[Rfam]
RNA: RT-14 RNA
RNA sequence: CUCUCGCGGCCAGAUGUUGCAGACUCAAGGGUCUGCAUCCAGUGCGGAGAGAAUAAAGGAGUCCAUCUCCAUGCCGAAAGGCAAAAAAGUAAAAUUUUUAUGGAUGCCGACAGUAGCCGCAAGGCCAACUCCGCAACACAUAA
Number, nucleotide and partner (000 for none) at each position: 001c000002u000003c049004u048005c047006g000007c000008g000009g045010c044011c000012a000013g000014a000015u000016g039017u000018u037019g036020c035021a034022g033023a032024c031025u000026c000027a000028a000029g000030g000031g024032u023033c022034u021035g020036c019037a018038u000039c016040c000041a000042g000043u000044g010045c009046g000047g005048a004049g003050a000051g000052a000053a000054u000055a000056a000057a000058g000059g000060a000061g000062u000063c000064c000065a000066u000067c000068u000069c000070c000071a000072u000073g082074c081075c080076g000077a000078a000079a000080g075081g074082c073083a000084a000085a000086a000087a000088a000089g000090u000091a000092a000093a000094a000095u000096u000097u000098u143099u142100a141101u140102g139103g000104a000105u135106g134107c133108c000109g131110a130111c000112a000113g000114u000115a000116g125117c124118c000119g000120c000121a000122a000123g000124g117125c116126c000127a000128a000129c000130u110131c109132c000133g107134c106135a105136a000137c000138a000139c102140a101141u100142a099143a098